[Rfam]
RNA sequence: UGUGAGUGCCCUCCUUGGCCGUUUCCUUCCUAGACUUCGGGCCGCUCCCGAGAGCGGCCUUCUCUUCAUGCGCG
Numbered sequence: 001u002g003u004g005a006g007u008g009c010c011c012u013c014c015u016u017g018g019c020c021g022u023u024u025c026c027u028u029c030c031u032a033g034a035c036u037u038c039g040g041g042c043c044g045c046u047c048c049c050g051a052g053a054g055c056g057g058c059c060u061u062c063u064c065u066u067c068a069u070g071c072g073c074g
Stems, first nucleotide, its partner, number of pairs: 008020001010018002039060009
RNA: Makes More Granules Regulator RNA (mmgR)
Organism: Methylobacterium sp. 4-46